[Rfam]
RNA: DUF3800-I RNA
RNA sequence: UUAAUUUGCAGGUAUAGAUACGCUGUAUACUCAUGAUAUCGAAUUAGCGUUUAAGCGAUAUAUAAUAUCGUCGAUUAUGAGGCCACCUUUGAGGUGGUUUUUUUAUUU
Numbered sequence: 001u002u003a004a005u006u007u008g009c010a011g012g013u014a015u016a017g018a019u020a021c022g023c024u025g026u027a028u029a030c031u032c033a034u035g036a037u038a039u040c041g042a043a044u045u046a047g048c049g050u051u052u053a054a055g056c057g058a059u060a061u062a063u064a065a066u067a068u069c070g071u072c073g074a075u076u077a078u079g080a081g082g083c084c085a086c087c088u089u090u091g092a093g094g095u096g097g098u099u100u101u102u103u104u105a106u107u108u
Stems, first nucleotide, its partner, number of pairs: 007027005012021003030081006038075004042051003055071006082098007